RNA sequence: AUAAGCCGCCUGACUUUGGUGGUUGUAAUUUCCGGUGUGCUUUGGUCGGCCUACACCGGAGGGAGAGCCCGCUUCGGCGGGUUUUUU
Numbered sequence: 001a002u003a004a005g006c007c008g009c010c011u012g013a014c015u016u017u018g019g020u021g022g023u024u025g026u027a028a029u030u031u032c033c034g035g036u037g038u039g040c041u042u043u044g045g046u047c048g049g050c051c052u053a054c055a056c057c058g059g060a061g062g063g064a065g066a067g068c069c070c071g072c073u074u075c076g077g078c079g080g081g082u083u084u085u086u087u
Stems, first nucleotide, its partner, number of pairs: 010022002013020002030061009065084008
Dot-bracket structure: .........((.((....)))).......(((((((((..............)))))))))...((((((((....))))))))...
Overview
This 87-nucleotide sequence from Pseudescherichia vulneris belongs to the Rfam family "isrB Hfq binding RNA". The family's RNA type in Rfam is small RNA. The family's consensus secondary structure was predicted with WAR. The source organism's lineage runs through Bacteria, Pseudomonadati, Pseudomonadota, Enterobacteriaceae and Pseudescherichia vulneris. The match comes from Rfam's covariance-model search (50 bits). For this family Rfam cites "Small RNAs encoded within genetic islands of Salmonella typhimurium show host-induced expression and role in virulence" (Padalon-Brauch et al., Nucleic Acids Res, 2008).